[Rfam]
RNA sequence: AUUUCCACUGCUGCACCUGAGGGCACACGCAUCUUCAGCGGGACUUGGAAUUCCAGAGAAUUGCCUUUGUGAGAAACUGGCAAUAAUUUGUUUAAAUUCCAUCUCUUAGUUUUCCAUUUUGUUACGUUUUGGAGGAACUUCAAGAAACC
Number, nucleotide and partner (000 for none) at each position: 001a000002u000003u000004u000005c000006c080007a000008c000009u000010g077011c000012u075013g000014c073015a000016c071017c000018u069019g068020a067021g066022g065023g064024c063025a062026c000027a061028c000029g000030c000031a000032u000033c000034u000035u000036c000037a000038g000039c000040g000041g054042g053043a052044c000045u000046u000047g000048g000049a000050a000051u000052u043053c042054c041055a000056g000057a000058g000059a000060a000061u027062u025063g024064c023065c022066u021067u020068u019069g018070u000071g016072a000073g014074a000075a012076a000077c010078u000079g000080g006081c000082a000083a000084u000085a000086a000087u147088u146089u145090g000091u143092u142093u000094a000095a000096a000097u137098u136099c135100c134101a000102u000103c000104u000105c000106u000107u000108a000109g000110u000111u000112u000113u000114c000115c000116a000117u000118u000119u000120u000121g000122u000123u000124a000125c000126g000127u000128u000129u000130u000131g000132g000133a000134g100135g099136a098137a097138c000139u000140u000141c000142a092143a091144g000145a089146a088147a087148c000149c000
This 149-nucleotide RNA from Odobenus rosmarus belongs to the Rfam family "ODC internal ribosome entry site (IRES)". Pairs were carried over by alignment from the consensus structure, which was predicted with mfold. Its family is annotated with ribosome binding in the Gene Ontology.